[Rfam]
RNA sequence: UUUUCAGUAUAAGUAUGUGCCAUUCAAUAUUUGGAAUAUAAUUUUACUAAAA
Numbered sequence: 001u002u003u004u005c006a007g008u009a010u011a012a013g014u015a016u017g018u019g020c021c022a023u024u025c026a027a028u029a030u031u032u033g034g035a036a037u038a039u040a041a042u043u044u045u046a047c048u049a050a051a052a
Base pairs, nucleotide, nucleotide: 006048007047008046009045011043012042014040015039016038018036020034021033022031

About this RNA: This 52-nucleotide sequence from Nyctereutes procyonoides belongs to the Rfam family "mir-1302 microRNA precursor family". Its family is annotated with RISC complex and miRNA-mediated post-transcriptional gene silencing in the Gene Ontology. A reference for the family is Morin et al. (2008), "Application of massively parallel sequencing to microRNA profiling and discovery in human embryonic stem cells", Genome Res. It scores 64 bits against the family's covariance model. Lineage of the source: Eukaryota > Chordata > Craniata > Teleostomi > Nyctereutes.